[Rfam]
Archaeal RNase P: a 436-nucleotide RNA from Haloplanus salinarum.
Gene Ontology terms of the family: ribonuclease P activity, tRNA processing and multimeric ribonuclease P complex.
The family's consensus secondary structure is taken from published work.
A search with the family's covariance model found it, with a score of 144 bits.
The organism belongs to Haloplanus, within Archaea.
From the family's description: Ribonuclease P (RNase P) is a ubiquitous endoribonuclease, found in archaea, bacteria and eukarya as well as chloroplasts and mitochondria. Its best characterised activity is the generation of mature 5'-ends of tRNAs by cleaving the 5'-leader elements of precursor-tRNAs. Cellular RNase Ps are ribonucleoproteins. RNA from bacterial RNase Ps retains its catalytic activity in the absence of the protein subunit, i.e. it is a ribozyme. Isolated eukaryotic and archaeal RNase P RNA has not been shown to retain its catalytic function, but is still essential for the catalytic activity of the holoenzyme. Although the archaeal and eukaryotic holoenzymes have a much greater protein content than the bacterial ones, the RNA cores from all the three lineages are homologous -- helices corresponding to P1, P2, P3, P4, and P10/11 are common to all cellular RNase P RNAs. Yet, there is considerable sequence variation, particularly among the eukaryotic RNAs.

RNA sequence: GGCAGAGAGAGCCCGGCCCCCGUGUGCGAACACGAGGAAAGUCCCCCCACCGUCCGGACGGGUGACCGGGCGCAAGCCCGGAGUCGGAGACGGCUGGCUCUGGAACAGAAACGAGACCACUCGGCCCGACCGAUGAGGUGUGCGAACCCGAGCGCGAGCGAGGGGAGUUGACCCACCGAGGGUAGCGUGAUCGCGAAGGGACCACGGAGCUGCGAGCGGCGUCCGCCGCGCGCCUUCGAGGCGCUUCGCGUCUCGCCGACGGCGUGCGGUUCCACCGGACGCCCUACGGGACCCGUCGGGUCCCGCGACGGCCGAGAACGGAUGGAACGGCGAAUCCCCACCGGUGCAAGUCCGCCUCGUCAAGGUAGUCCGGACGCGGAGGUGGACGCUCAGCCGAAUGCCGGGACGAACAGAAGGGGGCUUACUCCUCUCAGCC
Numbered sequence: 001g002g003c004a005g006a007g008a009g010a011g012c013c014c015g016g017c018c019c020c021c022g023u024g025u026g027c028g029a030a031c032a033c034g035a036g037g038a039a040a041g042u043c044c045c046c047c048c049a050c051c052g053u054c055c056g057g058a059c060g061g062g063u064g065a066c067c068g069g070g071c072g073c074a075a076g077c078c079c080g081g082a083g084u085c086g087g088a089g090a091c092g093g094c095u096g097g098c099u100c101u102g103g104a105a106c107a108g109a110a111a112c113g114a115g116a117c118c119a120c121u122c123g124g125c126c127c128g129a130c131c132g133a134u135g136a137g138g139u140g141u142g143c144g145a146a147c148c149c150g151a152g153c154g155c156g157a158g159c160g161a162g163g164g165g166a167g168u169u170g171a172c173c174c175a176c177c178g179a180g181g182g183u184a185g186c187g188u189g190a191u192c193g194c195g196a197a198g199g200g201a202c203c204a205c206g207g208a209g210c211u212g213c214g215a216g217c218g219g220c221g222u223c224c225g226c227c228g229c230g231c232g233c234c235u236u237c238g239a240g241g242c243g244c245u246u247c248g249c250g251u252c253u254c255g256c257c258g259a260c261g262g263c264g265u266g267c268g269g270u271u272c273c274a275c276c277g278g279a280c281g282c283c284c285u286a287c288g289g290g291a292c293c294c295g296u297c298g299g300g301u302c303c304c305g306c307g308a309c310g311g312c313c314g315a316g317a318a319c320g321g322a323u324g325g326a327a328c329g330g331c332g333a334a335u336c337c338c339c340a341c342c343g344g345u346g347c348a349a350g351u352c353c354g355c356c357u358c359g360u361c362a363a364g365g366u367a368g369u370c371c372g373g374a375c376g377c378g379g380a381g382g383u384g385g386a387c388g389c390u391c392a393g394c395c396g397a398a399u400g401c402c403g404g405g406a407c408g409a410a411c412a413g414a415a416g417g418g419g420g421c422u423u424a425c426u427c428c429u430c431u432c433a434g435c436c
Stems, first nucleotide, its partner, number of pairs: 001436003005432005010426002012405006021034005039423003043420005048346004055373001057371001061342004066081005082095005096337002101333001103331001117321002120316007350387009